[Rfam]
RNA: Transposase-2 RNA
RNA sequence: GAAGUGCGAACCAAGCGGGCGCGUAAAAGCGUCGUGAGACUUGGAGCUGGCCUUGGUAACGAGGCCAUGUA
Number, nucleotide and partner (000 for none) at each position: 001g000002a000003a000004g000005u000006g000007c000008g000009a000010a000011c044012c043013a042014a041015g040016c000017g000018g033019g032020c031021g030022c029023g000024u000025a000026a000027a000028a000029g022030c021031g020032u019033c018034g000035u000036g000037a000038g000039a000040c015041u014042u013043g012044g011045a000046g000047c000048u067049g066050g065051c064052c063053u062054u061055g060056g000057u000058a000059a000060c055061g054062a053063g052064g051065c050066c049067a048068u000069g000070u000071a000